[Rfam]
RNA: TPP riboswitch aptamer (THI element)
Organism: Bacillus sp. AFS018417
RNA sequence: GAAUUGGAACAGGGGAGCCCGUGCGGCUGAGAGGAUGUAACAAUGCAUCGACCCUUAACCUGAUCUGGAUAAUGCCAGCGUAGGGAGUUGUAUCAAGAAUCGU
Numbered sequence: 001g002a003a004u005u006g007g008a009a010c011a012g013g014g015g016a017g018c019c020c021g022u023g024c025g026g027c028u029g030a031g032a033g034g035a036u037g038u039a040a041c042a043a044u045g046c047a048u049c050g051a052c053c054c055u056u057a058a059c060c061u062g063a064u065c066u067g068g069a070u071a072a073u074g075c076c077a078g079c080g081u082a083g084g085g086a087g088u089u090g091u092a093u094c095a096a097g098a099a100u101c102g103u
Base pairs, nucleotide, nucleotide: 006091008089009088010087011055012054013053014052017027018026019025034049035048036047037046038045059084060083061082062081065078066077067076068075